[Rfam]
RNA sequence: AGUAAUCUUCGGGGUCGGGUGAAAGUCCCAACCGGCGGUAUAGUCCGCGACCCGCAGUAUCUGCGGCUGAACCGGUGACUUUUCUGUGCAAAGGAUGCAUGGCAGGGGAUUCCGGUACCGACAGUAAAGUCUGGAUGAGAGAAGAAGGUU
Numbered sequence: 001a002g003u004a005a006u007c008u009u010c011g012g013g014g015u016c017g018g019g020u021g022a023a024a025g026u027c028c029c030a031a032c033c034g035g036c037g038g039u040a041u042a043g044u045c046c047g048c049g050a051c052c053c054g055c056a057g058u059a060u061c062u063g064c065g066g067c068u069g070a071a072c073c074g075g076u077g078a079c080u081u082u083u084c085u086g087u088g089c090a091a092a093g094g095a096u097g098c099a100u101g102g103c104a105g106g107g108g109a110u111u112c113c114g115g116u117a118c119c120g121a122c123a124g125u126a127a128a129g130u131c132u133g134g135a136u137g138a139g140a141g142a143a144g145a146a147g148g149u150u
Base pairs, nucleotide, nucleotide: 003148006145007144008143009142010141017029018028019027031130032129033120034119035048036047037046038045043118044117052066053065071116072115073114074113075112122133123132124131

Rfam assigns this 150-nucleotide sequence from [Ruminococcus] lactaris to the family "FMN riboswitch aptamer (RFN element)". The family's consensus secondary structure is taken from published work. Lineage of the source: Bacteria > Bacillota > Lachnospirales > Mediterraneibacter > [Ruminococcus] lactaris. From the family's description: The RFN element is a highly conserved domain that is found frequently in the 5'-untranslated regions of prokaryotic mRNAs that encode for flavin mononucleotide (FMN) biosynthesis and transport proteins. This element is a metabolite-dependent riboswitch that directly binds FMN in the absence of proteins. In Bacillus subtilis, the riboswitch most likely controls gene expression by causing premature transcription termination within the 5' untranslated region of the ribDEAHT operon and precluding access to the ribosome-binding site of ypaA mRNA.The FMN riboswitch structure, reported in present an FMN-bound six-stem junction, adopts a butterfly-like scaffold, stapled together by opposingly directed but nearly identically folded peripheral domains.